[Rfam]
The record is a 124-nucleotide RNA sequence from Jaculus jaculus, which matches "Small nucleolar RNA SNORA33" in Rfam. By type it is an H/ACA-box small nucleolar RNA.
RNA sequence: AAACCAGCCAAUUAAUCUGCUUAUCUGAAUGUGUUUCUGCAGAAAUUUAGAAAAAGCUGGCAAUAGUGAUAUUUUAUGAGCCUUAAGAACAACUAAGGUCAUUAAGGUCCCUGCUACAAUAUCA
Numbered sequence: 001a002a003a004c005c006a007g008c009c010a011a012u013u014a015a016u017c018u019g020c021u022u023a024u025c026u027g028a029a030u031g032u033g034u035u036u037c038u039g040c041a042g043a044a045a046u047u048u049a050g051a052a053a054a055a056g057c058u059g060g061c062a063a064u065a066g067u068g069a070u071a072u073u074u075u076a077u078g079a080g081c082c083u084u085a086a087g088a089a090c091a092a093c094u095a096a097g098g099u100c101a102u103u104a105a106g107g108u109c110c111c112u113g114c115u116a117c118a119a120u121a122u123c124a
Base pairs, nucleotide, nucleotide: 004060005059006058007057016043017042018041019040020039068123069122070121071120080108081107082106083105084104085103086102089099090098